Rfam assigns this 74-nucleotide sequence from Acipenser ruthenus to the family "Small nucleolar RNA SNORD47". Lineage of the source: Eukaryota > Deuterostomia > Actinopteri > Acipenserini > Acipenser. Gene Ontology terms of the family: nucleolus and RNA processing. By type it is a C/D-box small nucleolar RNA. The family's consensus secondary structure was predicted with ILM.
RNA sequence: AACCUGUGAUGAUCAGAUUCUGCCAAAUGAAUCCAGCUGAUUAUACUCCUUACCGUUCCAUUUAUUCUGAGGUU
Number, nucleotide and partner (000 for none) at each position: 001a074002a073003c072004c071005u000006g000007u000008g000009a000010u000011g000012a000013u000014c000015a000016g000017a000018u000019u000020c000021u000022g000023c000024c000025a000026a000027a000028u000029g000030a000031a000032u000033c000034c000035a000036g000037c000038u000039g000040a000041u000042u000043a000044u000045a000046c000047u000048c000049c000050u000051u000052a000053c000054c000055g000056u000057u000058c000059c000060a000061u000062u000063u000064a000065u000066u000067c000068u000069g000070a000071g004072g003073u002074u001